[Rfam]
RNA sequence: CUCUCCGCUGCAAACAACCUGCCCUAAGCAAGAGGUCCACCCAGCUUAGGGCAGGUUGUUUGCAGCGGAGAG
Number, nucleotide and partner (000 for none) at each position: 001c000002u071003c070004u069005c068006c067007g000008c065009u064010g063011c062012a061013a060014a059015c058016a057017a056018c055019c054020u053021g052022c051023c050024c049025u048026a047027a046028g045029c044030a000031a000032g000033a000034g000035g000036u000037c000038c000039a000040c000041c000042c000043a000044g029045c028046u027047u026048a025049g024050g023051g022052c021053a020054g019055g018056u017057u016058g015059u014060u013061u012062g011063c010064a009065g008066c000067g006068g005069a004070g003071a002072g000
Shown here is a 72-nucleotide RNA sequence from Baryphthengus martii, a member of the family "mir-30 microRNA precursor family".
From the family's description: This family consists of the mammalian microRNA (miRNA) precursor mir-30a. Animal miRNAs are transcribed as ~70nt precursors and subsequently processed by the Dicer enzyme to give a ~22nt product. In this case the mature sequence comes from both the 3' (miR-30) and 5' (mir-97-6) arms of the precursor.
Rfam 15.1 lists 3,879 matches to the family in 647 species.